[Rfam]
RNA sequence: UGCACCGUGUACUCCCAGAUACUCUGCGGGUCCGCGAGCGUUUCGUCACCGAAGUGGUCGCCGUUGGCCAGCACCCCGAGCGUGGUCUGGUCGCCGUACUUGCCAGGGCCGAUCUGGCUCACCUUGCCGUGUGCGAUGAGGAAGGCCUGGUCCGAGGAGUGUCCGAACUCGACGAUCGUGUCGCCCGGCUCGUAGCUGCGCUGCUCGAACCGAUCGGCCAGCGCGGCCAGCACGGCCUCGUCGGAAAAGCCCCGCAGCAACGGAAGUUCGCCCAGUUCGGCGGGAAUGACGCGAACGUCGCCGCCGGUGCUCACGAACGUCACCCGGCCAUCGCCGACGGUGUAGGUGAGGCGGCGGUUCACCCGGUACGUGCCGCCGGCCGCCUGGACCCAGGGCAGCACGCGCAGCAGCCAGCGCGAGGUGAUGCCCUGCAUCUGCGGGACGGAUUUCGUCGUGGUCGCCAGGUUCCGCGCCGCCGCGGUGCUCAGGCUUUGCGGCUGCGCAGCCUCGG
Numbered sequence: 001u002g003c004a005c006c007g008u009g010u011a012c013u014c015c016c017a018g019a020u021a022c023u024c025u026g027c028g029g030g031u032c033c034g035c036g037a038g039c040g041u042u043u044c045g046u047c048a049c050c051g052a053a054g055u056g057g058u059c060g061c062c063g064u065u066g067g068c069c070a071g072c073a074c075c076c077c078g079a080g081c082g083u084g085g086u087c088u089g090g091u092c093g094c095c096g097u098a099c100u101u102g103c104c105a106g107g108g109c110c111g112a113u114c115u116g117g118c119u120c121a122c123c124u125u126g127c128c129g130u131g132u133g134c135g136a137u138g139a140g141g142a143a144g145g146c147c148u149g150g151u152c153c154g155a156g157g158a159g160u161g162u163c164c165g166a167a168c169u170c171g172a173c174g175a176u177c178g179u180g181u182c183g184c185c186c187g188g189c190u191c192g193u194a195g196c197u198g199c200g201c202u203g204c205u206c207g208a209a210c211c212g213a214u215c216g217g218c219c220a221g222c223g224c225g226g227c228c229a230g231c232a233c234g235g236c237c238u239c240g241u242c243g244g245a246a247a248a249g250c251c252c253c254g255c256a257g258c259a260a261c262g263g264a265a266g267u268u269c270g271c272c273c274a275g276u277u278c279g280g281c282g283g284g285a286a287u288g289a290c291g292c293g294a295a296c297g298u299c300g301c302c303g304c305c306g307g308u309g310c311u312c313a314c315g316a317a318c319g320u321c322a323c324c325c326g327g328c329c330a331u332c333g334c335c336g337a338c339g340g341u342g343u344a345g346g347u348g349a350g351g352c353g354g355c356g357g358u359u360c361a362c363c364c365g366g367u368a369c370g371u372g373c374c375g376c377c378g379g380c381c382g383c384c385u386g387g388a389c390c391c392a393g394g395g396c397a398g399c400a401c402g403c404g405c406a407g408c409a410g411c412c413a414g415c416g417c418g419a420g421g422u423g424a425u426g427c428c429c430u431g432c433a434u435c436u437g438c439g440g441g442a443c444g445g446a447u448u449u450c451g452u453c454g455u456g457g458u459c460g461c462c463a464g465g466u467u468c469c470g471c472g473c474c475g476c477c478g479c480g481g482u483g484c485u486c487a488g489g490c491u492u493u494g495c496g497g498c499u500g501c502g503c504a505g506c507c508u509c510g511g
Stems, first nucleotide, its partner, number of pairs: 007389002010386002014382001018328001025322002029318001031316002036312007045305001047303001050300003054233002058229001060227005065111004077102004082097005117222003122217002127212001129210002131206001133204003138199001140197001150191001154189001157186001159184001160178002164174002234296001237293001240290004250282001252280003256277003261270002329342004352378006360372003391431007399423003403418003407415001437476004443470004447465003451461002477510002480506001482504001484502001486500003
The family of this 511-nucleotide sequence from Amycolatopsis alkalitolerans is "Saccharopolyspora sRNA 350". The source organism's lineage runs through Bacteria, Actinomycetota, Actinomycetes, Pseudonocardiales and Amycolatopsis. A search with the family's covariance model found it, with a score of 223 bits. For this family Rfam cites "Prediction and characterization of small non-coding RNAs related to secondary metabolites in Saccharopolyspora erythraea" (Liu et al., PLoS One, 2013). Rfam links the family to the GO term regulation of secondary metabolite biosynthetic process. Rfam classes the family as an antisense RNA.